Source information:
A member of the RNA family "Mason-Pfizer monkey virus packaging signal" from Sciurus carolinensis, 277 nucleotides long. Taxonomically the source falls in Sciurus (Eukaryota, Vertebrata, Sarcopterygii, Eutheria). On this family, see Mustafa et al., Virus Res 2004: "Mutational analysis of the predicted secondary RNA structure of the Mason-Pfizer monkey virus packaging signal". It is annotated as a cis-regulatory element. Rfam describes the family as follows. This family represents a group of sequences that are related to the Mason-Pfizer monkey virus (MPMV) packaging signal. The packaging signal is located in the 5' UTR and is required for specific RNA encapsidation.
RNA sequence: UGGCACACAAUGUGGGGCGUGGACACGGGAAAAUCAUGAGGGAAGAGGCGUUUGAUAGUUCGGCCAAACUCAGCAGAAGUCAGUUCAACAAAGAUCACCGUGUGAACCUGCCAAGUCGCUCUUAAAAGGUACAGUAACAACAAAUUAUGGGACAAGAUUUAAGUAAGCAUAAAGUUUUUGUUAAGCAAUUAAAAGAAGCCUUAAAGACAUGGGGAGUAAGGGUUAAAAGUAAUGAGCUUUUUUAAGUUUUUUGAACUUAUCAAGGACACCUGCCCGU
Numbered sequence: 001u002g003g004c005a006c007a008c009a010a011u012g013u014g015g016g017g018c019g020u021g022g023a024c025a026c027g028g029g030a031a032a033a034u035c036a037u038g039a040g041g042g043a044a045g046a047g048g049c050g051u052u053u054g055a056u057a058g059u060u061c062g063g064c065c066a067a068a069c070u071c072a073g074c075a076g077a078a079g080u081c082a083g084u085u086c087a088a089c090a091a092a093g094a095u096c097a098c099c100g101u102g103u104g105a106a107c108c109u110g111c112c113a114a115g116u117c118g119c120u121c122u123u124a125a126a127a128g129g130u131a132c133a134g135u136a137a138c139a140a141c142a143a144a145u146u147a148u149g150g151g152a153c154a155a156g157a158u159u160u161a162a163g164u165a166a167g168c169a170u171a172a173a174g175u176u177u178u179u180g181u182u183a184a185g186c187a188a189u190u191a192a193a194a195g196a197a198g199c200c201u202u203a204a205a206g207a208c209a210u211g212g213g214g215a216g217u218a219a220g221g222g223u224u225a226a227a228a229g230u231a232a233u234g235a236g237c238u239u240u241u242u243u244a245a246g247u248u249u250u251u252u253g254a255a256c257u258u259a260u261c262a263a264g265g266a267c268a269c270c271u272g273c274c275c276g277u
Stems, first nucleotide, its partner, number of pairs: 006029001012026003034046002037043001084125002094120001096118001099115001101113002135155001141150001143148001160203003163199002210253008220239003223235003262277001264275002267272001